[Rfam]
About this RNA:
Shown here is a 139-nucleotide sequence from Myotis lucifugus, a member of the family "Small nucleolar RNA SNORD10". Gene Ontology terms of the family: RNA processing and nucleolus. By type it is a C/D-box small nucleolar RNA. The base pairs follow the family's consensus structure, which was predicted with WAR. The sequence is in the family's curated seed alignment.

RNA sequence: GCUCUAUGAUGAACCCCAUGCGUGUCAUCUGAGCCUGGCUUCCCUGUCUCAGCCCAGGUAGUGUUCUACUUCCCAGGGCUAUUGUCUGGCCUGGCAAGGGGGGUCCCUGGCAAAGGAUCAAAAUUUGAAUUCUGAGAGC
Numbered sequence: 001g002c003u004c005u006a007u008g009a010u011g012a013a014c015c016c017c018a019u020g021c022g023u024g025u026c027a028u029c030u031g032a033g034c035c036u037g038g039c040u041u042c043c044c045u046g047u048c049u050c051a052g053c054c055c056a057g058g059u060a061g062u063g064u065u066c067u068a069c070u071u072c073c074c075a076g077g078g079c080u081a082u083u084g085u086c087u088g089g090c091c092u093g094g095c096a097a098g099g100g101g102g103g104u105c106c107c108u109g110g111c112a113a114a115g116g117a118u119c120a121a122a123a124u125u126u127g128a129a130u131u132c133u134g135a136g137a138g139c
Base pairs, nucleotide, nucleotide: 001139002138003137004136039103040102041101042100043099044098045097